[Rfam]
RNA: mir-1744 microRNA precursor family
RNA sequence: GGGACCCGGUGCUCCUCUGUUGAGCUCAAAAGUAGAACCUCUGUUGACUUCAACAGGAGCAAGACUGAACCCU
Numbered sequence: 001g002g003g004a005c006c007c008g009g010u011g012c013u014c015c016u017c018u019g020u021u022g023a024g025c026u027c028a029a030a031a032g033u034a035g036a037a038c039c040u041c042u043g044u045u046g047a048c049u050u051c052a053a054c055a056g057g058a059g060c061a062a063g064a065c066u067g068a069a070c071c072c073u
Base pairs, nucleotide, nucleotide: 002071003070007067008066009065010064013061015059016058017057018055019054020053021052022051023050024049026047027046028045029044031042032041
Dot-bracket structure: .((...((((..(.((((((((((.((((.((........)).)))).))))))).))).)..))))..))..